[Rfam]
RNA: Lysine riboswitch aptamer
Organism: Cytobacillus solani
RNA sequence: AGUGAAGGUAGAGGUGCAAACUUCAUAAGUAAAGGCUUGGAGAAGAAUGAGCUUCAAUGAAAAGCUUUGAAAGGGAAUGUUUGCCGAAGUGAAGAAAGUCUCAUCGCUUUCUUUGCUGGUUUUGCAUUUAAUAAAUGCAAGAUUGUCAAGAUAAUUAAUAUCUUGGAGAGCUAUCUCACUG
Numbered sequence: 001a002g003u004g005a006a007g008g009u010a011g012a013g014g015u016g017c018a019a020a021c022u023u024c025a026u027a028a029g030u031a032a033a034g035g036c037u038u039g040g041a042g043a044a045g046a047a048u049g050a051g052c053u054u055c056a057a058u059g060a061a062a063a064g065c066u067u068u069g070a071a072a073g074g075g076a077a078u079g080u081u082u083g084c085c086g087a088a089g090u091g092a093a094g095a096a097a098g099u100c101u102c103a104u105c106g107c108u109u110u111c112u113u114u115g116c117u118g119g120u121u122u123u124g125c126a127u128u129u130a131a132u133a134a135a136u137g138c139a140a141g142a143u144u145g146u147c148a149a150g151a152u153a154a155u156u157a158a159u160a161u162c163u164u165g166g167a168g169a170g171c172u173a174u175c176u177c178a179c180u181g
Stems, first nucleotide, its partner, number of pairs: 006176006016084006022077003032068007088117012118144011146166007